[Rfam]
RNA sequence: ACACACUGAAAGGAGGUGAUCCCGGAAAUGUACGAACUCCGGACGCGUGAGGUGGCUGCGGGCUAGGGCCCGUCGUCAGUAGCGCACCCAGUGCGGUGCCCGGCGGAUCGCCCGGCGCCAAUCCCAAGCAGUCACCCGACCCGCGGGCUCGCCGGUACGUCCGGCCGGCUCCUCUCACUGCAGGAGAGGAACCCGAGCCCGCGGGUCGUCUGCG
Numbered sequence: 001a002c003a004c005a006c007u008g009a010a011a012g013g014a015g016g017u018g019a020u021c022c023c024g025g026a027a028a029u030g031u032a033c034g035a036a037c038u039c040c041g042g043a044c045g046c047g048u049g050a051g052g053u054g055g056c057u058g059c060g061g062g063c064u065a066g067g068g069c070c071c072g073u074c075g076u077c078a079g080u081a082g083c084g085c086a087c088c089c090a091g092u093g094c095g096g097u098g099c100c101c102g103g104c105g106g107a108u109c110g111c112c113c114g115g116c117g118c119c120a121a122u123c124c125c126a127a128g129c130a131g132u133c134a135c136c137c138g139a140c141c142c143g144c145g146g147g148c149u150c151g152c153c154g155g156u157a158c159g160u161c162c163g164g165c166c167g168g169c170u171c172c173u174c175u176c177a178c179u180g181c182a183g184g185a186g187a188g189g190a191a192c193c194c195g196a197g198c199c200c201g202c203g204g205g206u207c208g209u210c211u212g213c214g
Stems, first nucleotide, its partner, number of pairs: 016059003020055001061119003064115001066113002070110001072108001074105003137208013151169006
Actinobacteria sRNA Ms_IGR-5: a 214-nucleotide RNA from Streptomyces sp. NRRL F-4428.